[Rfam]
RNA sequence: UGAUACCAGGGUCAAAAGGUCCUGCGUUUCAUGCUUGCAUGAAAAAGCAUGACCUUGGGAGCCGAACAAACAUGAGAAAGCAGCCCGAUUAGGGUGUAUUUCGAAUGUUUGUAGGGUGCUGAACAUCCAGUGGAUGUUCGUUUAGCACGGACCGAAGCGGAGCGGAGACUUGUGAGAGCUCGAAGAGCGUAACAAUCCGUGUAUCA
Numbered sequence: 001u002g003a004u005a006c007c008a009g010g011g012u013c014a015a016a017a018g019g020u021c022c023u024g025c026g027u028u029u030c031a032u033g034c035u036u037g038c039a040u041g042a043a044a045a046a047g048c049a050u051g052a053c054c055u056u057g058g059g060a061g062c063c064g065a066a067c068a069a070a071c072a073u074g075a076g077a078a079a080g081c082a083g084c085c086c087g088a089u090u091a092g093g094g095u096g097u098a099u100u101u102c103g104a105a106u107g108u109u110u111g112u113a114g115g116g117u118g119c120u121g122a123a124c125a126u127c128c129a130g131u132g133g134a135u136g137u138u139c140g141u142u143u144a145g146c147a148c149g150g151a152c153c154g155a156a157g158c159g160g161a162g163c164g165g166a167g168a169c170u171u172g173u174g175a176g177a178g179c180u181c182g183a184a185g186a187g188c189g190u191a192a193c194a195a196u197c198c199g200u201g202u203a204u205c206a
Stems, first nucleotide, its partner, number of pairs: 001206006010062001012060002016056006023049003027045002029042005066112008076102004083095004114198004

A member of the RNA family "Clostridiales-1 RNA" from Blautia liquoris, 206 nucleotides long. By type it is a small RNA. NCBI's taxonomy places the organism under Bacteria, Bacillati, Clostridia, Lachnospirales, Blautia. The family's consensus secondary structure is taken from published work.